[Rfam]
RNA sequence: CUGGUGGGCAACCGCCCGCUGGGACCUGACACCGGUACCUGAUACGGCCGGUGCAG
Number, nucleotide and partner (000 for none) at each position: 001c022002u021003g020004g019005u018006g017007g016008g015009c014010a000011a000012c000013c000014g009015c008016c007017c006018g005019c004020u003021g002022g001023g000024a000025c000026c056027u055028g054029a000030c053031a052032c051033c050034g049035g048036u047037a000038c000039c000040u000041g000042a000043u000044a000045c000046g000047g036048c035049c034050g033051g032052u031053g030054c028055a027056g026

The record is a 56-nucleotide RNA sequence from Streptomyces sp. ISL-11, which matches "L17-Actino-Proteobacteria ribosomal protein leader" in Rfam.
On this family, see Eckert and Weinberg, BMC Microbiol 2020: "Discovery of 20 novel ribosomal leader candidates in bacteria and archaea".
The match comes from Rfam's covariance-model search (68 bits).
The family's consensus secondary structure is taken from published work.